The record is a 105-nucleotide RNA from Thermopolyspora flexuosa, which matches "ZMP/ZTP riboswitch aptamer (pfl RNA motif)" in Rfam. The base pairs follow the family's consensus structure, which is taken from published work. A search with the family's covariance model found it, with a score of 39 bits.
[Rfam]
RNA sequence: UCUAAGGGUCGCGACUGGCGCUGACGCGCCCGCGCGGGCGCGUCGCAAGGUGGGGUACCACCGGGGAGCGAAACCACGUGGGGGCCGUGCGCCUGGGUCACCACG
Numbered sequence: 001u002c003u004a005a006g007g008g009u010c011g012c013g014a015c016u017g018g019c020g021c022u023g024a025c026g027c028g029c030c031c032g033c034g035c036g037g038g039c040g041c042g043u044c045g046c047a048a049g050g051u052g053g054g055g056u057a058c059c060a061c062c063g064g065g066g067a068g069c070g071a072a073a074c075c076a077c078g079u080g081g082g083g084g085c086c087g088u089g090c091g092c093c094u095g096g097g098u099c100a101c102c103a104c105g
Base pairs, nucleotide, nucleotide: 006074009071010070011069012068015065016064017093018092019091020090021089050061051060052059053058083099084098085097086096
NCBI's taxonomy places the organism under Bacteria, Bacillati, Actinomycetes, Streptosporangiaceae, Thermopolyspora.